[Rfam]
RNA sequence: UGAUAGUCUGAACCAGUUCAUCAAUGCUUCUAAUAGUCUGGAAGGAAGCGCUUUCGAGUGACUAUGAAAAACUCCCGUAGCCUGCAAGGGAGAGCAUUGCAAUGCGGUACAUCUGCGCACUUUUGGAAGCAGAUAUCGUCAGACAGAUAACAC
Numbered sequence: 001u002g003a004u005a006g007u008c009u010g011a012a013c014c015a016g017u018u019c020a021u022c023a024a025u026g027c028u029u030c031u032a033a034u035a036g037u038c039u040g041g042a043a044g045g046a047a048g049c050g051c052u053u054u055c056g057a058g059u060g061a062c063u064a065u066g067a068a069a070a071a072c073u074c075c076c077g078u079a080g081c082c083u084g085c086a087a088g089g090g091a092g093a094g095c096a097u098u099g100c101a102a103u104g105c106g107g108u109a110c111a112u113c114u115g116c117g118c119a120c121u122u123u124u125g126g127a128a129g130c131a132g133a134u135a136u137c138g139u140c141a142g143a144c145a146g147a148u149a150a151c152a153c
Stems, first nucleotide, its partner, number of pairs: 001015002004012001026049005033065006050059003072092004077110003081107002094105003112133005121147003136143002